Shown here is a 196-nucleotide RNA sequence from Ruminococcus sp. CAG:624, a member of the family "Group II catalytic intron D1-D4-5". Taxonomically the source falls in Ruminococcus (Bacteria, Bacillati, Bacillota, Oscillospiraceae). The literature on the family includes a 2001 paper in Trends Genet by Bonen and Vogel, "The ins and outs of group II introns".
RNA sequence: UAGAACUAUUAUUCUGAUGAGUCGAAUGAAGGAGUAACGCCCAGAAAGGCUCACGUUAAAACUACGGACGGCUAAGCAGUGUGAAAUGCAGAUGUCGUAAGCCCGUGGAAGUCGCACGAGAGCAGUCCUAACUGAUAAAGCCGAGGAAAGCGUCACAGAGGUGUGAUGUACUGCCUAUAGUGCGGACGGCGGUGCA
Number, nucleotide and partner (000 for none) at each position: 001u000002a000003g000004a000005a000006c000007u000008a000009u000010u000011a000012u000013u000014c000015u000016g000017a000018u053019g052020a051021g050022u049023c048024g000025a000026a000027u000028g000029a000030a000031g000032g042033a000034g040035u000036a000037a000038c000039g000040c034041c000042c032043a000044g000045a000046a000047a000048g023049g022050c021051u020052c019053a018054c188055g187056u186057u185058a000059a000060a000061a000062c000063u000064a106065c105066g104067g103068a098069c097070g096071g095072c094073u000074a000075a000076g089077c088078a087079g000080u085081g000082u000083g000084a000085a080086a000087u078088g077089c076090a000091g000092a000093u000094g072095u071096c070097g069098u068099a000100a000101g000102c000103c067104c066105g065106u064107g000108g000109a000110a000111g000112u000113c184114g183115c182116a181117c180118g000119a000120g000121a000122g174123c173124a172125g171126u170127c146128c145129u144130a000131a000132c000133u000134g142135a000136u000137a000138a000139a000140g000141c000142c134143g000144a129145g128146g127147a000148a000149a000150g169151c168152g167153u166154c165155a164156c163157a162158g000159a000160g000161g000162u157163g156164u155165g154166a153167u152168g151169u150170a126171c125172u124173g123174c122175c000176u000177a000178u000179a000180g117181u116182g115183c114184g113185g057186a056187c055188g054189g000190c000191g000192g000193u000194g000195c000196a000